[Rfam]
Rfam assigns this 138-nucleotide sequence from Liparis tanakae to the family "Small nucleolar RNA SNORA57". The base pairs follow the family's consensus structure, which was predicted with PFOLD. For this family Rfam cites "Identification of 13 novel human modification guide RNAs" (Vitali et al., Nucleic Acids Res, 2003). It is annotated as an H/ACA-box small nucleolar RNA. Lineage of the source: Eukaryota > Chordata > Vertebrata > Neopterygii > Liparis.

RNA sequence: CCUCCUUUCUUGGCAUACUCGUUGUUUUCCUGUGCACUAGUGUGUGUAUUUGAUGGAGGAACAAGAAAGUCCAGUGCUAUGUCUUCGGUGCCAGAAGUCAACCUUCUUCUGGUUCUAUCCUCAAUCGCUGGCACAUUU
Numbered sequence: 001c002c003u004c005c006u007u008u009c010u011u012g013g014c015a016u017a018c019u020c021g022u023u024g025u026u027u028u029c030c031u032g033u034g035c036a037c038u039a040g041u042g043u044g045u046g047u048a049u050u051u052g053a054u055g056g057a058g059g060a061a062c063a064a065g066a067a068a069g070u071c072c073a074g075u076g077c078u079a080u081g082u083c084u085u086c087g088g089u090g091c092c093a094g095a096a097g098u099c100a101a102c103c104u105u106c107u108u109c110u111g112g113u114u115c116u117a118u119c120c121u122c123a124a125u126c127g128c129u130g131g132c133a134c135a136u137u138u
Base pairs, nucleotide, nucleotide: 001059002058003057004056005055014044015043016042017041018040019039021037023036024035025034072130073129074128075127076126091112092111093110094109095108096107097106
Rfam describes the family as follows. U99 belongs to the H/ACA class of snoRNAs which are thought to guide the sites of modification of uridines to pseudouridines, the target for this family is unknown.
It scores 89 bits against the family's covariance model.